Overview: The family of this 104-nucleotide RNA from Rhinopomastus cyanomelas is "Small nucleolar RNA SNORD125". Clan: SNORD61 clan. Gene Ontology terms of the family: nucleolus and RNA processing. The family's consensus secondary structure was predicted with WAR.
[Rfam]
RNA sequence: GUCGGGAACAGCCUCAUGUGAUGACCCUUCUCCCUCUGAUGGCUGUGGUGGUGAUGAUCGUCAAACCAAAGCCUCUAAGAAGUUGACUGAGGGGCUGUUCCUCU
Numbered sequence: 001g002u003c004g005g006g007a008a009c010a011g012c013c014u015c016a017u018g019u020g021a022u023g024a025c026c027c028u029u030c031u032c033c034c035u036c037u038g039a040u041g042g043c044u045g046u047g048g049u050g051g052u053g054a055u056g057a058u059c060g061u062c063a064a065a066c067c068a069a070a071g072c073c074u075c076u077a078a079g080a081a082g083u084u085g086a087c088u089g090a091g092g093g094g095c096u097g098u099u100c101c102u103c104u
Stems, first nucleotide, its partner, number of pairs: 007099009